[Rfam]
RNA sequence: UAAAAAUAAAUAAUAAAAUUUCGUAUAAAAUCGAGAAUGGGCUCGAAAGUUUCUACCAGGUGGCCGUAACCAUCUGACUACGAACCAUAGAUAUGCAUAU
Numbered sequence: 001u002a003a004a005a006a007u008a009a010a011u012a013a014u015a016a017a018a019u020u021u022c023g024u025a026u027a028a029a030a031u032c033g034a035g036a037a038u039g040g041g042c043u044c045g046a047a048a049g050u051u052u053c054u055a056c057c058a059g060g061u062g063g064c065c066g067u068a069a070c071c072a073u074c075u076g077a078c079u080a081c082g083a084a085c086c087a088u089a090g091a092u093a094u095g096c097a098u099a100u
Base pairs, nucleotide, nucleotide: 020084021083022082023081024080025079031046032045033044034043035042057076058075059074060073061072062071063070
Purine riboswitch aptamer: a 100-nucleotide RNA sequence from Orenia metallireducens. Its family is annotated with purine nucleobase biosynthetic process in the Gene Ontology. The base pairs follow the family's consensus structure, which is taken from published work.